[Rfam]
RNA sequence: AUAUAUUUAAACCCAUGAAUGGGAAUUUCCCCCUUCCUUGGUUCCACUGUAAUGUGAAAGAAUUCCUGGCUCUUGUGUUGCAGAGCUGACUUUGUGUUACUCUGCUGUUGCUGUACAGAGUGAGGGAACAUAC
Numbered sequence: 001a002u003a004u005a006u007u008u009a010a011a012c013c014c015a016u017g018a019a020u021g022g023g024a025a026u027u028u029c030c031c032c033c034u035u036c037c038u039u040g041g042u043u044c045c046a047c048u049g050u051a052a053u054g055u056g057a058a059a060g061a062a063u064u065c066c067u068g069g070c071u072c073u074u075g076u077g078u079u080g081c082a083g084a085g086c087u088g089a090c091u092u093u094g095u096g097u098u099a100c101u102c103u104g105c106u107g108u109u110g111c112u113g114u115a116c117a118g119a120g121u122g123a124g125g126g127a128a129c130a131u132a133c
Stems, first nucleotide, its partner, number of pairs: 002051004010043004017037001019035001021033003063128005069121005076115002080111003084106003088102002
RNA: Small nucleolar RNA SNORA46
Organism: Suricata suricatta